[Rfam]
The family of this 76-nucleotide sequence from Panagrolaimus superbus is "mir-236 microRNA precursor family". Pairs were carried over by alignment from the consensus structure, which was predicted with RNAalifold. Lineage of the source: Eukaryota > Eumetazoa > Tylenchina > Panagrolaimidae > Panagrolaimus.
Nucleotides: 076
Base pairs, nucleotide, nucleotide: 002075003074005072006071007070008069009068010067011065012064013063014062015061016060017059020057021056023054024053025052026051027050028049029048
Number, partner (000 for none) and nucleotide at each position: 001000u002075a003074c004000u005072a006071u007070c008069g009068u010067u011065u012064u013063a014062c015061c016060u017059g018000a019000a020057c021056a022000a023054u024053a025052u026051u027050a028049g029048a030000g031000u032000u033000a034000a035000u036000u037000u038000u039000a040000a041000g042000g043000c044000u045000u046000u047000a048029u049028c050027u051026a052025a053024u054023a055000c056021u057020g058000u059017c060016a061015g062014g063013u064012a065011a066000u067010g068009a069008c070007g071006a072005u073000u074003g075002u076000c